[Rfam]
RNA sequence: CAGAAAACUACAUACUGUUCUCGUAUAACCUCGCAGCCAUUUGCUAUAUACAGGGCGAGGGUUUCUACAGGAAGCCUAUUCUUCCUAACUACGAUGACAAGGAUCAAAUGU
Numbered sequence: 001c002a003g004a005a006a007a008c009u010a011c012a013u014a015c016u017g018u019u020c021u022c023g024u025a026u027a028a029c030c031u032c033g034c035a036g037c038c039a040u041u042u043g044c045u046a047u048a049u050a051c052a053g054g055g056c057g058a059g060g061g062u063u064u065c066u067a068c069a070g071g072a073a074g075c076c077u078a079u080u081c082u083u084c085c086u087a088a089c090u091a092c093g094a095u096g097a098c099a100a101g102g103a104u105c106a107a108a109u110g111u
Base pairs, nucleotide, nucleotide: 018097019096021094022093023092024091025090029060030059031058032057033056034055069086070085071084072083073082074081

Background:
A member of the RNA family "Purine riboswitch aptamer" from Paenibacillus sp. FSL H7-0357, 111 nucleotides long. It scores 38 bits against the family's covariance model. NCBI's taxonomy places the organism under Bacteria, Bacillati, Bacilli, Paenibacillaceae, Paenibacillus.